[Rfam]
RNA: U4 spliceosomal RNA
Organism: Pipistrellus kuhlii
RNA sequence: AGCUUUGUGCAGUGGUAGUAUCUUAUAGCCAAUGAGGUUUAUCCCAGGUGCGAUUAUUGCCAAUUGAAAAUAAAAAAGUGGCAAGUUUUUAAUGUUUUUUAAAGUUUGAUAUAAGUGUAAUUGAUUUAAAACA
Number, nucleotide and partner (000 for none) at each position: 001a000002g000003c000004u000005u000006u000007g000008u000009g000010c000011a000012g000013u000014g000015g000016u000017a000018g000019u000020a054021u053022c052023u000024u050025a000026u000027a000028g049029c048030c047031a000032a000033u000034g000035a000036g044037g043038u000039u000040u000041a000042u000043c037044c036045c000046a000047g030048g029049u028050g024051c000052g022053a021054u020055u000056a000057u000058u000059g000060c000061c000062a000063a000064u000065u000066g000067a000068a000069a000070a000071u000072a000073a000074a000075a000076a000077a000078g000079u000080g000081g000082c108083a107084a106085g105086u104087u103088u000089u102090u101091a100092a099093u000094g000095u000096u000097u000098u000099u092100u091101a090102a089103a087104g086105u085106u084107u083108g082109a000110u000111a000112u000113a000114a000115g000116u000117g000118u000119a000120a000121u000122u133123g132124a000125u130126u000127u000128a000129a000130a125131a000132c123133a122